[Rfam]
RNA: mycoplasma ribosomal frameshift element
Organism: Mesomycoplasma hyorhinis
RNA sequence: AAAUGAAGUUCUAAAAAAGUGAAAAGCCUUGGUAGAGAUCUUUGACUCAAGUCAACCAAGGCAAGAGAAAAUAAAAAAAAUUUAUAA
Numbered sequence: 001a002a003a004u005g006a007a008g009u010u011c012u013a014a015a016a017a018a019g020u021g022a023a024a025a026g027c028c029u030u031g032g033u034a035g036a037g038a039u040c041u042u043u044g045a046c047u048c049a050a051g052u053c054a055a056c057c058a059a060g061g062c063a064a065g066a067g068a069a070a071a072u073a074a075a076a077a078a079a080a081u082u083u084a085u086a087a
Base pairs, nucleotide, nucleotide: 026062027061028060029059030058031057032056033055035053036052